[Rfam]
RNA sequence: CGUGUCUAAGCUUUGACCAGGGCCUUGUCCAAGACCCGGCGAACAAUUUUUGGCUGCCUUCCCAGGAGGGAGGGCAA
Numbered sequence: 001c002g003u004g005u006c007u008a009a010g011c012u013u014u015g016a017c018c019a020g021g022g023c024c025u026u027g028u029c030c031a032a033g034a035c036c037c038g039g040c041g042a043a044c045a046a047u048u049u050u051u052g053g054c055u056g057c058c059u060u061c062c063c064a065g066g067a068g069g070g071a072g073g074g075c076a077a
Stems, first nucleotide, its partner, number of pairs: 020037003024033003055076009
Dot-bracket structure: ...................(((.(((....))).))).................(((((((((....))))))))).
A member of the RNA family "SmY spliceosomal RNA" from Brugia malayi, 77 nucleotides long. The organism belongs to Brugia, within Eukaryota. The family's RNA type in Rfam is spliceosomal small nuclear RNA. The sequence is in the family's curated seed alignment.